[Rfam]
This 94-nucleotide RNA sequence belongs to the Rfam family "GP20-a RNA".
It is one of the family's seed sequences.
The base pairs follow the family's consensus structure, which is taken from published work.
RNA sequence: AUUACUCGGCGUUGCAGAGAAAUAAAUGCGACGGCAUCCCGCCCGCUGAGUGGCAGCGGCUCUAUAAGUCAAAUCCCGGAUGCGAUGGAGGAAC
Number, nucleotide and partner (000 for none) at each position: 001a000002u000003u000004a000005c019006u018007c017008g000009g000010c033011g032012u031013u030014g029015c000016a000017g007018a006019g005020a000021a000022a000023u000024a000025a000026a000027u000028g000029c014030g013031a012032c011033g010034g000035c087036a086037u085038c084039c000040c000041g000042c000043c059044c058045g057046c056047u055048g000049a000050g000051u000052g000053g000054c000055a047056g046057c045058g044059g043060c000061u000062c000063u000064a000065u000066a000067a000068g000069u000070c000071a000072a000073a000074u000075c000076c000077c000078g000079g000080a000081u000082g000083c000084g038085a037086u036087g035088g000089a000090g000091g000092a000093a000094c000